Shown here is a 106-nucleotide RNA sequence from Protea cynaroides, a member of the family "MIR397 microRNA precursor family". The organism belongs to Protea, within Eukaryota.

[Rfam]
RNA sequence: CACAAAAGCAUCAUUGAGUGCAGCGUUGAUGAUAACGUCAUUCCCUUCCCUCUUCGUUCAUUGUCUCUACCCAGUUUCACCAGCGCUGCACUCAAUCAUGUUUUUC
Numbered sequence: 001c002a003c004a005a006a007a008g009c010a011u012c013a014u015u016g017a018g019u020g021c022a023g024c025g026u027u028g029a030u031g032a033u034a035a036c037g038u039c040a041u042u043c044c045c046u047u048c049c050c051u052c053u054u055c056g057u058u059c060a061u062u063g064u065c066u067c068u069a070c071c072c073a074g075u076u077u078c079a080c081c082a083g084c085g086c087u088g089c090a091c092u093c094a095a096u097c098a099u100g101u102u103u104u105u106c
Stems, first nucleotide, its partner, number of pairs: 006103006013096016030079003
Dot-bracket structure: .....((((((.((((((((((((((((.(((............................................))).)))))))))))))))).))))))...